[Rfam]
RNA sequence: GGAAUCCCGCCUGGGUAAGUGCUAGCCACACGCCCAGUAUCGAGUGUUGCAGCCAACGUAUAAGGCGGUUCGCCGAAGUCGUUGGUUGAAGCGUACACAGAAAGGUAGUGAGGAUGAAUUGACUGCGGGUGGCCCCGCAGCAAUGAAUGGAAGUAGCUCCGAAAUUUAGUACCUGUUGGAUUCUGCCCAAGGCUUGUGCAUACCUGAAGGCAACAUCGGCUGCAGCGUUACCGGCAAGUUGCAGACGGAGACCCGGAGUCCGCGGCCC
Dot-bracket structure: ...........((((...(((.[.[[..))).)))).(.((..(((((((((((((((.....................)))))))))...)).)))).)).)....................................................((((((................((.(.(((((..(((..........)))...)))....(((.(((((((.......]].]))))))).)))))))))))))).........
Numbered sequence: 001g002g003a004a005u006c007c008c009g010c011c012u013g014g015g016u017a018a019g020u021g022c023u024a025g026c027c028a029c030a031c032g033c034c035c036a037g038u039a040u041c042g043a044g045u046g047u048u049g050c051a052g053c054c055a056a057c058g059u060a061u062a063a064g065g066c067g068g069u070u071c072g073c074c075g076a077a078g079u080c081g082u083u084g085g086u087u088g089a090a091g092c093g094u095a096c097a098c099a100g101a102a103a104g105g106u107a108g109u110g111a112g113g114a115u116g117a118a119u120u121g122a123c124u125g126c127g128g129g130u131g132g133c134c135c136c137g138c139a140g141c142a143a144u145g146a147a148u149g150g151a152a153g154u155a156g157c158u159c160c161g162a163a164a165u166u167u168a169g170u171a172c173c174u175g176u177u178g179g180a181u182u183c184u185g186c187c188c189a190a191g192g193c194u195u196g197u198g199c200a201u202a203c204c205u206g207a208a209g210g211c212a213a214c215a216u217c218g219g220c221u222g223c224a225g226c227g228u229u230a231c232c233g234g235c236a237a238g239u240u241g242c243a244g245a246c247g248g249a250g251a252c253c254c255g256g257a258g259u260c261c262g263c264g265g266c267c268c
Stems, first nucleotide, its partner, number of pairs: 012036004019031003023237001025235002038103001040101002044098004048093002050088009156259006178253002181251001183250002185211003190205003216248003220244007